[Rfam]
The family of this 107-nucleotide RNA sequence from [Bacteroides] pectinophilus is "ZMP/ZTP riboswitch aptamer (pfl RNA motif)". The base pairs follow the family's consensus structure, which is taken from published work. Taxonomically the source falls in [Bacteroides] pectinophilus (Bacteria, Bacillota, Clostridia, Eubacteriales). The match comes from Rfam's covariance-model search (51 bits).

RNA sequence: GCAGUGAUGCACGACUGGCGGAAGCAGACAUCGGACAGAUGUUCUGUGUAGGGCAACCUACAGGGAGUGUAUUUUAUACGGAUUAGCCGACCGCCUGGGCAGCAUUA
Number, nucleotide and partner (000 for none) at each position: 001g000002c000003a000004g075005u000006g073007a072008u071009g070010c069011a068012c067013g000014a000015c064016u063017g095018g094019c093020g092021g091022a000023a000024g000025c000026a000027g000028a000029c000030a000031u000032c000033g000034g000035a000036c000037a000038g000039a000040u000041g000042u000043u000044c000045u000046g000047u000048g061049u060050a059051g058052g000053g000054c000055a000056a000057c000058c051059u050060a049061c048062a000063g016064g015065g000066a000067g012068u011069g010070u009071a008072u007073u006074u000075u004076a000077u000078a000079c000080g000081g000082a000083u000084u102085a000086g100087c099088c098089g000090a000091c021092c020093g019094c018095c017096u000097g000098g088099g087100c086101a000102g084103c000104a000105u000106u000107a000